The record is a 67-nucleotide RNA sequence from Sakesphorus luctuosus, which matches "Small nucleolar RNA SNORD101" in Rfam. The literature on the family includes a 2003 paper in Nucleic Acids Res by Vitali et al., "Identification of 13 novel human modification guide RNAs". The family's RNA type in Rfam is C/D-box small nucleolar RNA. The family has 26 seed sequences and 658 matches in Rfam 15.1. Pairs were carried over by alignment from the consensus structure, which was predicted with PFOLD.
RNA sequence: GUUUGGGUGAUGACUUGUCGGAAUCCCCUGCACUCGUCUUCUGAGUGAUAACUACUGUCUGACAAAC
Numbered sequence: 001g002u003u004u005g006g007g008u009g010a011u012g013a014c015u016u017g018u019c020g021g022a023a024u025c026c027c028c029u030g031c032a033c034u035c036g037u038c039u040u041c042u043g044a045g046u047g048a049u050a051a052c053u054a055c056u057g058u059c060u061g062a063c064a065a066a067c
Stems, first nucleotide, its partner, number of pairs: 001067005